[Rfam]
RNA sequence: UUCCGAAGCGCGUGUUUGACGACGAUGUUGGGAAAGCUGACCCCCUUGAGCCGCGCGGUGCGGAUGUAUUGAGCGGUCAUGACUUCGGCCAUCGACGCGCGGGUCAUCCGGGCAAUGUAGCCCAUCCCGUAGAGCGAGAUCGUCAGAACCGGAAGGAAGAAGUUUUCGAAAUUCGCGCUC
Dot-bracket structure: ...(((..(.(((.((((..((......((((........(((...(((.((((((.((.(((.....))).)).)......(.(((.....))).)))))).)))...)))........)))))).)).)).))).).)))...((..((((.((((....)))).....))))...))
Numbered sequence: 001u002u003c004c005g006a007a008g009c010g011c012g013u014g015u016u017u018g019a020c021g022a023c024g025a026u027g028u029u030g031g032g033a034a035a036g037c038u039g040a041c042c043c044c045c046u047u048g049a050g051c052c053g054c055g056c057g058g059u060g061c062g063g064a065u066g067u068a069u070u071g072a073g074c075g076g077u078c079a080u081g082a083c084u085u086c087g088g089c090c091a092u093c094g095a096c097g098c099g100c101g102g103g104u105c106a107u108c109c110g111g112g113c114a115a116u117g118u119a120g121c122c123c124a125u126c127c128c129g130u131a132g133a134g135c136g137a138g139a140u141c142g143u144c145a146g147a148a149c150c151g152g153a154a155g156g157a158a159g160a161a162g163u164u165u166u167c168g169a170a171a172u173u174c175g176c177g178c179u180c
Stems, first nucleotide, its partner, number of pairs: 004142003009138001011136003015132002017129002021126002029124004041112003047106003051102005056076001058074002061071003083097001085095003146180002150175004155166004